[Rfam]
RNA sequence: AAUGUUGUUUUUUAAAAAUAGAACUUUUAUUUUGUGGAAGUACUGUCAUUAUCCUGCUGAAAGAAAAGGCUGUGUUGAUUUUUUUUGAUUUUGCCUCUAUGAGGGUAAAAUCACAGCAUAUUGACAUGGACAGUU
Numbered sequence: 001a002a003u004g005u006u007g008u009u010u011u012u013u014a015a016a017a018a019u020a021g022a023a024c025u026u027u028u029a030u031u032u033u034g035u036g037g038a039a040g041u042a043c044u045g046u047c048a049u050u051a052u053c054c055u056g057c058u059g060a061a062a063g064a065a066a067a068g069g070c071u072g073u074g075u076u077g078a079u080u081u082u083u084u085u086u087g088a089u090u091u092u093g094c095c096u097c098u099a100u101g102a103g104g105g106u107a108a109a110a111u112c113a114c115a116g117c118a119u120a121u122u123g124a125c126a127u128g129g130a131c132a133g134u135u
Stems, first nucleotide, its partner, number of pairs: 004057002007054001019045003023041005070129010086113011

Rfam assigns this 135-nucleotide RNA sequence from Octodon degus to the family "Small nucleolar RNA SNORA69". Gene Ontology terms of the family: nucleolus and RNA processing. The source organism's lineage runs through Eukaryota, Metazoa, Chordata, Euteleostomi and Octodon. About the family: U69 is a member of the H/ACA class of small nucleolar RNAs (snoRNAs) which act as guides in the the modification of uridines to pseudouridines. Rfam classes the family as an H/ACA-box small nucleolar RNA.